[Rfam]
The record is a 196-nucleotide RNA from Pseudomonas oryzihabitans, which matches "Pseudomonas sRNA P27" in Rfam.
For this family Rfam cites "Identification of 17 Pseudomonas aeruginosa sRNAs and prediction of sRNA-encoding genes in 10 diverse pathogens using the bioinformatic tool sRNAPredict2" (Livny et al., Nucleic Acids Res, 2006).
The match comes from Rfam's covariance-model search (145 bits).
The family's consensus secondary structure was predicted with WAR.

RNA sequence: GGGUUUAACUCCUGGAUGUUACCGUUUCGCCCGAUGGACUGGGCGGCGUUUUGGUGUCUGACUCGGUAACCGAAUCGGGAGCACCAUCUGCGUAGGCUGGGGUUUCCCCGGUUUAAGACUUGCGUCCCCUACGGUCUUGGACAGCCCCCGCCAGGCAGGGACCCCAAUCUUGACGCCGCGCCCGAAGGCACAGCGA
Number, nucleotide and partner (000 for none) at each position: 001g000002g164003g163004u000005u161006u160007a000008a000009c000010u000011c155012c154013u153014g152015g000016a000017u000018g000019u000020u000021a000022c000023c048024g047025u000026u000027u000028c045029g044030c043031c042032c041033g040034a000035u000036g000037g000038a000039c000040u033041g032042g031043g030044c029045g028046g000047c024048g023049u000050u000051u000052u086053g085054g084055u083056g082057u081058c078059u077060g076061a075062c000063u073064c072065g000066g000067u000068a000069a000070c000071c000072g064073a063074a000075u061076c060077g059078g058079g000080a000081g057082c056083a055084c054085c053086a052087u000088c000089u000090g151091c150092g149093u000094a000095g146096g145097c144098u143099g000100g000101g000102g000103u000104u000105u000106c000107c000108c000109c000110g000111g142112u141113u140114u139115a138116a137117g136118a135119c134120u133121u000122g000123c000124g000125u000126c000127c000128c000129c000130u000131a000132c000133g120134g119135u118136c117137u116138u115139g114140g113141a112142c111143a098144g097145c096146c095147c000148c000149c092150g091151c090152c014153a013154g012155g011156c000157a000158g000159g000160g006161a005162c000163c003164c002165c000166a000167a000168u000169c000170u000171u000172g000173a000174c000175g000176c000177c000178g000179c195180g194181c193182c000183c000184g191185a000186a000187g000188g000189c000190a000191c184192a000193g181194c180195g179196a000